This 100-nucleotide RNA sequence from Heyndrickxia ginsengihumi belongs to the Rfam family "SAM riboswitch aptamer (S box leader)".

[Rfam]
RNA sequence: UUCUUAUCAAGAGAGAUUGAGGGAUCUGGCCCUACGACGUCUCAGCAACCUGUUUGUUACAAGGUGCUCCAUCCAGCAGAUUCAUUCUGAAAGAUAAGAA
Number, nucleotide and partner (000 for none) at each position: 001u100002u099003c098004u097005u096006a095007u094008c093009a000010a000011g000012a000013g043014a042015g041016a040017u039018u000019g000020a000021g032022g031023g030024a000025u000026c076027u075028g074029g073030c023031c022032c021033u000034a000035c000036g000037a000038c000039g017040u016041c015042u014043c013044a068045g067046c066047a065048a000049c064050c063051u061052g060053u059054u000055u000056g000057u000058u000059a053060c052061a051062a000063g050064g049065u047066g046067c045068u044069c000070c000071a000072u092073c029074c028075a027076g026077c089078a088079g087080a086081u000082u000083c000084a000085u000086u080087c079088u078089g077090a000091a000092a072093g008094a007095u006096a005097a004098g003099a002100a001
NCBI's taxonomy places the organism under Bacteria, Bacillota, Bacilli, Caryophanales, Heyndrickxia. The match comes from Rfam's covariance-model search (81 bits). Pairs were carried over by alignment from the consensus structure, which is taken from published work.